[Rfam]
RNA: Early nodulin 40
RNA sequence: AUUAUUCUCUCAAUGGCUUAAGAAAAACAGGGCAAUUUGGAGUGAUGAAUGAUUAGCUUCAUUCCAUGCUCCAAAUUUAGACAGUUUGUUUAUGCUUUAGCCAUCUGCAUGCUCUGCAGAUCAGCAUGGAGCUUUGCCAUGCACUCAAGAAGAAGAAGAUGAUGAAGCUUCAGAGCUCAGACAGUUCUUCUGCCAGAGUAUAAAGGAUUUGGCUAAUGUGUAGCAAACCGGCAAGUCACAUAACGGCAAUGGACUCUUUUCUUCGAGUUCU
Numbered sequence: 001a002u003u004a005u006u007c008u009c010u011c012a013a014u015g016g017c018u019u020a021a022g023a024a025a026a027a028c029a030g031g032g033c034a035a036u037u038u039g040g041a042g043u044g045a046u047g048a049a050u051g052a053u054u055a056g057c058u059u060c061a062u063u064c065c066a067u068g069c070u071c072c073a074a075a076u077u078u079a080g081a082c083a084g085u086u087u088g089u090u091u092a093u094g095c096u097u098u099a100g101c102c103a104u105c106u107g108c109a110u111g112c113u114c115u116g117c118a119g120a121u122c123a124g125c126a127u128g129g130a131g132c133u134u135u136g137c138c139a140u141g142c143a144c145u146c147a148a149g150a151a152g153a154a155g156a157a158g159a160u161g162a163u164g165a166a167g168c169u170u171c172a173g174a175g176c177u178c179a180g181a182c183a184g185u186u187c188u189u190c191u192g193c194c195a196g197a198g199u200a201u202a203a204a205g206g207a208u209u210u211g212g213c214u215a216a217u218g219u220g221u222a223g224c225a226a227a228c229c230g231g232c233a234a235g236u237c238a239c240a241u242a243a244c245g246g247c248a249a250u251g252g253a254c255u256c257u258u259u260u261c262u263u264c265g266a267g268u269u270c271u
Stems, first nucleotide, its partner, number of pairs: 039072003084228006102218003252269005
Dot-bracket structure: ......................................(((............................)))...........((((((............(((...............................................................................................................)))....)))))).......................(((((........)))))..